[Rfam]
This 76-nucleotide sequence from Suricata suricatta belongs to the Rfam family "mir-1902 microRNA precursor family". A search with the family's covariance model found it, with a score of 82 bits. The family's consensus secondary structure was predicted with RNAalifold. Its family is annotated with miRNA-mediated post-transcriptional gene silencing and RISC complex in the Gene Ontology.
RNA sequence: GAUUUUGGGAGUGUUUGCUGUAUAAUUGGACUUAAUGAAAUGUUUAGAGGUGCAGUAGGCAUGACUUAGAGUAGAU
Numbered sequence: 001g002a003u004u005u006u007g008g009g010a011g012u013g014u015u016u017g018c019u020g021u022a023u024a025a026u027u028g029g030a031c032u033u034a035a036u037g038a039a040a041u042g043u044u045u046a047g048a049g050g051u052g053c054a055g056u057a058g059g060c061a062u063g064a065c066u067u068a069g070a071g072u073a074g075a076u
Stems, first nucleotide, its partner, number of pairs: 002072008011062013027046005